Nucleotides: 115
Stems, first nucleotide, its partner, number of pairs: 008030005015024003034080005039074003044067004082106010
Number, partner (000 for none) and nucleotide at each position: 001000a002000a003000a004000c005000a006000a007000a008030a009029c010028u011027u012026u013000a014000u015024g016023g017022a018000u019000a020000a021000a022017u023016c024015u025000g026012g027011g028010a029009g030008u031000a032000a033000a034080a035079u036078g037077u038076a039074u040073c041072u042000a043000c044067u045066c046065g047064a048000a049000g050000a051000a052000c053000a054000a055000c056000a057000a058000a059000c060000a061000c062000a063000a064047u065046c066045g067044a068000a069000a070000g071000g072041a073040g074039a075000c076038u077037a078036c079035a080034u081000c082106u083105u084104g085103a086102u087101u088100u089099g090098c091097g092000c093000c094000g095000g096000a097091u098090g099089c100088a101087g102086a103085u104084c105083a106082a107000a108000a109000g110000u111000c112000g113000c114000a115000c
Record summary:
This 115-nucleotide sequence from Leptospira interrogans belongs to the Rfam family "Leptospira sRNA 30_292". Lineage of the source: Bacteria > Spirochaetota > Leptospira > Leptospira interrogans > Leptospira interrogans serovar Lai. About the family: Identified by RNA seq and Northern blot on cells grown to exponential phase at 30 degree C. It is annotated as a small RNA. A reference for the family is Zhukova et al. (2017), "Genome-Wide Transcriptional Start Site Mapping and sRNA Identification in the Pathogen Leptospira interrogans", Front Cell Infect Microbiol.